Annotation:
This 82-nucleotide sequence from Streptococcus downei belongs to the Rfam family "Ribosomal protein L13 leader". About the family: This family is a putative r-protein leader autoregulatory structure found in B. subtilis and other low-GC Gram-positive bacteria. It is located in the 5' untranslated regions of mRNAs encoding the L13-S9 (rplM-rpsI) ribosomal protein operon.

RNA sequence: GGUAUUGUUUACCCCAUUUCAGAAGCCCCGGAAAGCUUUAGAAAUAACCCGUGGACCGGAACAUCCACACUGUAAACAAAAA
Numbered sequence: 001g002g003u004a005u006u007g008u009u010u011a012c013c014c015c016a017u018u019u020c021a022g023a024a025g026c027c028c029c030g031g032a033a034a035g036c037u038u039u040a041g042a043a044a045u046a047a048c049c050c051g052u053g054g055a056c057c058g059g060a061a062c063a064u065c066c067a068c069a070c071u072g073u074a075a076a077c078a079a080a081a082a
Stems, first nucleotide, its partner, number of pairs: 006078007016045005022039004
About this RNA
The family's consensus secondary structure was predicted with CMfinder. It is annotated as a cis-regulatory leader.